Background: RNase MRP: a 275-nucleotide sequence from Todus mexicanus. From the family's description: RNase MRP is an enzymatically active ribonucleoprotein with two distinct roles in eukaryotes. In mitochondria it plays a direct role in the initiation of mitochondrial DNA replication. In the nucleus it is involved in precursor rRNA processing, where it cleaves the internal transcribed spacer 1 between 18S and 5.8S rRNAs. It is annotated as a ribozyme. The literature on the family includes a 2006 paper in Nucleic Acids Res by Rosenblad et al., "Inventory and analysis of the protein subunits of the ribonucleases P and MRP provides further evidence of homology between the yeast and human enzymes".

RNA sequence: GGAUGUUCUGAAGACCUGCUCGCUAGGCCACGCACGGAGGACGCUGGUUCCUCACGGGCCCCGGCCCGCCUAGGGGAAAGUCCCCGGACCGCCGGCAGAGAGUGCCGGGCGCCGCUAGCGCCCUGGCCCGCCCCGCCCCUCACGUACAGCGCCGCCGAGACGCCCGCGGGGCCGAGCGGGUGAGUGCGGGGCGGGCGCUCGUCACGCGCACAGGCACGCAGGUAGUGCGCGCGGCCGGUGCGCACCAACAGCACGGGGCUCACUCUCAGGCCAUC
Numbered sequence: 001g002g003a004u005g006u007u008c009u010g011a012a013g014a015c016c017u018g019c020u021c022g023c024u025a026g027g028c029c030a031c032g033c034a035c036g037g038a039g040g041a042c043g044c045u046g047g048u049u050c051c052u053c054a055c056g057g058g059c060c061c062c063g064g065c066c067c068g069c070c071u072a073g074g075g076g077a078a079a080g081u082c083c084c085c086g087g088a089c090c091g092c093c094g095g096c097a098g099a100g101a102g103u104g105c106c107g108g109g110c111g112c113c114g115c116u117a118g119c120g121c122c123c124u125g126g127c128c129c130g131c132c133c134c135g136c137c138c139c140u141c142a143c144g145u146a147c148a149g150c151g152c153c154g155c156c157g158a159g160a161c162g163c164c165c166g167c168g169g170g171g172c173c174g175a176g177c178g179g180g181u182g183a184g185u186g187c188g189g190g191g192c193g194g195g196c197g198c199u200c201g202u203c204a205c206g207c208g209c210a211c212a213g214g215c216a217c218g219c220a221g222g223u224a225g226u227g228c229g230c231g232c233g234g235c236c237g238g239u240g241c242g243c244a245c246c247a248a249c250a251g252c253a254c255g256g257g258g259c260u261c262a263c264u265c266u267c268a269g270g271c272c273a274u275c
Base pairs, nucleotide, nucleotide: 002275003274004273005272007270008269009268010267011266014223015222016221017220018219019218023073024072025071026070027069028068037053038052039051040050041049079260080259082258083257084256085255094106095105096104097103107123108122109121110120111119112118125196127194131191132190133189134188135187136186140183141182142181143180152179153178154177155176162172163171164170165169225245226244227243228242229241230240